[Rfam]
The family of this 37-nucleotide sequence from Pantoea alhagi is "JUMPstart RNA".
RNA sequence: AAGCGUCUGGUUGCUUGAAGCCAGGGGCGGUAGCGUG
Numbered sequence: 001a002a003g004c005g006u007c008u009g010g011u012u013g014c015u016u017g018a019a020g021c022c023a024g025g026g027g028c029g030g031u032a033g034c035g036u037g
Stems, first nucleotide, its partner, number of pairs: 007024005